[Rfam]
The family of this 141-nucleotide RNA from Carassius auratus is "Small nucleolar RNA SNORA79". The match comes from Rfam's covariance-model search (69 bits). Its family is annotated with nucleolus and RNA processing in the Gene Ontology. It is annotated as an H/ACA-box small nucleolar RNA. Rfam 15.1 lists 944 matches to the family in 375 species. ACA65 (SNORA79) is a member of the H/ACA class of snoRNAs that guide the sites of modification of uridines to pseudouridines. This snoRNA was identified by computational screening and its expression in mouse experimentally verified by Northern blot and primer extension analysis. The base pairs follow the family's consensus structure, which was predicted with RNAalifold.
RNA sequence: UGAUGAUUGUUCCUCCUGCUGCUCGGAGCUCAGGCAGCUCAGGAUUUUACCUCAUCAGAGAGAAACUGAGUCCUCUUCACCCGGUGUGUGCCGACCCACGGUCACAGGUGGCCACACUGGACUUUGCGGGACUCUACAGCU
Numbered sequence: 001u002g003a004u005g006a007u008u009g010u011u012c013c014u015c016c017u018g019c020u021g022c023u024c025g026g027a028g029c030u031c032a033g034g035c036a037g038c039u040c041a042g043g044a045u046u047u048u049a050c051c052u053c054a055u056c057a058g059a060g061a062g063a064a065a066c067u068g069a070g071u072c073c074u075c076u077u078c079a080c081c082c083g084g085u086g087u088g089u090g091c092c093g094a095c096c097c098a099c100g101g102u103c104a105c106a107g108g109u110g111g112c113c114a115c116a117c118u119g120g121a122c123u124u125u126g127c128g129g130g131a132c133u134c135u136a137c138a139g140c141u
Stems, first nucleotide, its partner, number of pairs: 001057006014044005020036004069133006081120008